[Rfam]
RNA sequence: AACUUUCUGGACAACGGUUGGGCCAGAGGCUUUCAAGUGAUUUGUGCUUUUGAUUAUUUGGCAGCUUUUCUCUUUCUAU
Numbered sequence: 001a002a003c004u005u006u007c008u009g010g011a012c013a014a015c016g017g018u019u020g021g022g023c024c025a026g027a028g029g030c031u032u033u034c035a036a037g038u039g040a041u042u043u044g045u046g047c048u049u050u051u052g053a054u055u056a057u058u059u060g061g062c063a064g065c066u067u068u069u070c071u072c073u074u075u076c077u078a079u
Stems, first nucleotide, its partner, number of pairs: 007026004012020003028066004033061010
Description: Shown here is a 79-nucleotide RNA sequence from Chlorobaculum tepidum, a member of the family "Chlorobi-RRM RNA". Rfam classes the family as a cis-regulatory element. The base pairs follow the family's consensus structure, which is taken from published work.